The family of this 97-nucleotide RNA sequence from Oscillatoriales cyanobacterium M59_W2019_021 is "TPP riboswitch aptamer (THI element)". A search with the family's covariance model found it, with a score of 70 bits. Rfam describes the family as follows. Vitamin B(1) in its active form thiamin pyrophosphate (TPP) is an essential coenzyme that is synthesised by coupling of pyrimidine and thiazole moieties in bacteria. The previously detected thiamin-regulatory element, thi box was extended, resulting in a new, highly conserved RNA secondary structure, the THI element, which is widely distributed in eubacteria and also occurs in some archaea. Gene Ontology term of the family: thiamine pyrophosphate binding. NCBI's taxonomy places the organism under Bacteria, Bacillati, Cyanobacteriota, Oscillatoriophycideae, Oscillatoriales. The base pairs follow the family's consensus structure, which is taken from published work.

[Rfam]
RNA sequence: UGAUCGAGCUAGGGGUGCCCGACGCCACGGGCUGAGAUUACACCCUUAGAACCUGAGUCCGGCUAAUACCGGCGGAGGGAAGCUGUUAAUUGAGGAU
Numbered sequence: 001u002g003a004u005c006g007a008g009c010u011a012g013g014g015g016u017g018c019c020c021g022a023c024g025c026c027a028c029g030g031g032c033u034g035a036g037a038u039u040a041c042a043c044c045c046u047u048a049g050a051a052c053c054u055g056a057g058u059c060c061g062g063c064u065a066a067u068a069c070c071g072g073c074g075g076a077g078g079g080a081a082g083c084u085g086u087u088a089a090u091u092g093a094g095g096a097u
Stems, first nucleotide, its partner, number of pairs: 007084004011046004016040001017032005052078003059072004